[Rfam]
RNA sequence: CGGUUGUAGCAAAAUAGAUCAAAGAAGUUUACUGGCUAGUUGACGUGAGAUUUAUCUCAAUUGUCGGAUCUGCUUACUGAAAUUCUUACAUUU
Numbered sequence: 001c002g003g004u005u006g007u008a009g010c011a012a013a014a015u016a017g018a019u020c021a022a023a024g025a026a027g028u029u030u031a032c033u034g035g036c037u038a039g040u041u042g043a044c045g046u047g048a049g050a051u052u053u054a055u056c057u058c059a060a061u062u063g064u065c066g067g068a069u070c071u072g073c074u075u076a077c078u079g080a081a082a083u084u085c086u087u088a089c090a091u092u093u
Base pairs, nucleotide, nucleotide: 022087023086024085025084026083028081029080034074035073036072039069040068041067042065043064044063045062
The record is a 93-nucleotide RNA sequence from Kingdonia uniflora, which matches "Small nucleolar RNA snoR109" in Rfam. The source organism's lineage runs through Eukaryota, Embryophyta, Euphyllophyta, Magnoliopsida and Kingdonia. Pairs were carried over by alignment from the consensus structure, which was predicted with WAR. Rfam classes the family as an H/ACA-box small nucleolar RNA. A search with the family's covariance model found it, with a score of 62 bits.